[Rfam]
RNA sequence: GGUCACAGGUGAAGGGUUGCUUUCCGAGAGUUUAGAAAGAAGCUAUGCCUUUUUGUCUUUUCUCUUGGGGGAAAGUCCCCGGACGACCGCCAGAGAUGGCCUGCUCUGAAGGGUAGAGCGCAACUAGUUUGGCGAGACCUUGACCCAUGACCCCUUGGGGUGAAAGUAGGGAUAGGUCCAGUUGUCUCGUUCUUAGUUGCGUUUUUCGUCGUAGCAAAGUUAUGCAACCACCUUGAGUAAAUAAUGUUUAUCAAGGGAACCAAACGGGGCUUACUCUCCUCGUGAC
Numbered sequence: 001g002g003u004c005a006c007a008g009g010u011g012a013a014g015g016g017u018u019g020c021u022u023u024c025c026g027a028g029a030g031u032u033u034a035g036a037a038a039g040a041a042g043c044u045a046u047g048c049c050u051u052u053u054u055g056u057c058u059u060u061u062c063u064c065u066u067g068g069g070g071g072a073a074a075g076u077c078c079c080c081g082g083a084c085g086a087c088c089g090c091c092a093g094a095g096a097u098g099g100c101c102u103g104c105u106c107u108g109a110a111g112g113g114u115a116g117a118g119c120g121c122a123a124c125u126a127g128u129u130u131g132g133c134g135a136g137a138c139c140u141u142g143a144c145c146c147a148u149g150a151c152c153c154c155u156u157g158g159g160g161u162g163a164a165a166g167u168a169g170g171g172a173u174a175g176g177u178c179c180a181g182u183u184g185u186c187u188c189g190u191u192c193u194u195a196g197u198u199g200c201g202u203u204u205u206u207c208g209u210c211g212u213a214g215c216a217a218a219g220u221u222a223u224g225c226a227a228c229c230a231c232c233u234u235g236a237g238u239a240a241a242u243a244a245u246g247u248u249u250a251u252c253a254a255g256g257g258a259a260c261c262a263a264a265c266g267g268g269g270c271u272u273a274c275u276c277u278c279c280u281c282g283u284g285a286c
Base pairs, nucleotide, nucleotide: 002286003285004284005283006282008280009279011278012277015229016228017227018226019225020224024069025067026066027065028064029063030062039052040051041050042049073272074271075270077269078268079267080266089100090099091098092097101116102115103114104113105112106111118200119199120198124196125195126194127193133189134188135187136186142178143177144176145175231256232255233254234253235252236251
RNA: RNase MRP